[Rfam]
RNA sequence: UAAUUUUAAGGGCAAACCCAUCGAAAGAUGGGGACGCAAAGUUUCCGGUCUAAGGGACAAUGUCCUACGAUAGCGGGAUUGCUGGG
Dot-bracket structure: ...........((...((((((....))))))...))..((((.((((((....((((...))))...)))..)))))))......

Shown here is an 86-nucleotide RNA sequence from Sulfurimicrobium lacus, a member of the family "c-di-GMP-I riboswitch aptamer". The family's consensus secondary structure is taken from published work. The match comes from Rfam's covariance-model search (82 bits).